[Rfam]
RNA sequence: AGUUCUUAGUGUUCACUGCGAUCCUUGAUUUACACACAACGUGGGCAAUUAAGGCACGCGGUGAAUGCCAAGAGUC
Numbered sequence: 001a002g003u004u005c006u007u008a009g010u011g012u013u014c015a016c017u018g019c020g021a022u023c024c025u026u027g028a029u030u031u032a033c034a035c036a037c038a039a040c041g042u043g044g045g046c047a048a049u050u051a052a053g054g055c056a057c058g059c060g061g062u063g064a065a066u067g068c069c070a071a072g073a074g075u076c
Base pairs, nucleotide, nucleotide: 003074004073005072006071009068010067011066012065013064014063015062016061018059019058020057023054024053025052026051027050028049029048030047

The family of this 76-nucleotide RNA from Patiria miniata is "mir-124 microRNA precursor family". The base pairs follow the family's consensus structure, which was predicted with PFOLD. Its family is annotated with miRNA-mediated post-transcriptional gene silencing and RISC complex in the Gene Ontology. NCBI's taxonomy places the organism under Eukaryota, Eumetazoa, Asterozoa, Valvatida, Patiria. Rfam 15.1 lists 2,215 matches to the family in 905 species.